[Rfam]
Nucleotides: 082
Base pairs, nucleotide, nucleotide: 014049015048016047018046019045020044021043025040026039027038028037029036058081059080060079061078064077065076066075067074
Number, partner (000 for none) and nucleotide at each position: 001000u002000g003000a004000u005000a006000g007000c008000g009000a010000u011000g012000a013000a014049a015048u016047g017000u018046g019045a020044g021043g022000u023000u024000g025040c026039u027038a028037c029036c030000c031000g032000a033000u034000g035000u036029g037028g038027u039026a040025g041000g042000u043021u044020u045019u046018c047016c048015a049014u050000g051000g052000a053000g054000c055000g056000a057000a058081u059080g060079u061078c062000a063000a064077g065076u066075u067074a068000g069000g070000a071000a072000a073000c074067u075066g076065a077064c078061g079060a080059c081058a082000a